[Rfam]
RNA sequence: UUCCCGGAUGUAGCUCAGCGGUUCUUUCGACUAAGGCAUCAGCUUCUAACCACGCGAGGUGGUUCGAGACCCGGGGGCGUUCUCCAGUUUU
Numbered sequence: 001u002u003c004c005c006g007g008a009u010g011u012a013g014c015u016c017a018g019c020g021g022u023u024c025u026u027u028c029g030a031c032u033a034a035g036g037c038a039u040c041a042g043c044u045u046c047u048a049a050c051c052a053c054g055c056g057a058g059g060u061g062g063u064u065c066g067a068g069a070c071c072c073g074g075g076g077g078c079g080u081u082c083u084c085c086a087g088u089u090u091u
Stems, first nucleotide, its partner, number of pairs: 004087001006085002013078004019073003026068005
This 91-nucleotide sequence from Equus caballus belongs to the Rfam family "Vault RNA".
Rfam's curators write: This family of RNAs are found as part of the enigmatic vault ribonucleoprotein complex. The complex consists of a major vault protein (MVP), two minor vault proteins (VPARP and TEP1), and several small untranslated RNA molecules. It has been suggested that the vault complex is involved in drug resistance.
The organism belongs to Equus, within Eukaryota.